[Rfam]
RNA sequence: CUAUCUAUUGUUUUUGUGAUUGUUGCAGUUGGAUUAUAAGAAAAUUGCAUAGUCACAAAAGUGAUGGAUAG
Numbered sequence: 001c002u003a004u005c006u007a008u009u010g011u012u013u014u015u016g017u018g019a020u021u022g023u024u025g026c027a028g029u030u031g032g033a034u035u036a037u038a039a040g041a042a043a044a045u046u047g048c049a050u051a052g053u054c055a056c057a058a059a060a061g062u063g064a065u066g067g068a069u070a071g
Stems, first nucleotide, its partner, number of pairs: 002070005008064013024049007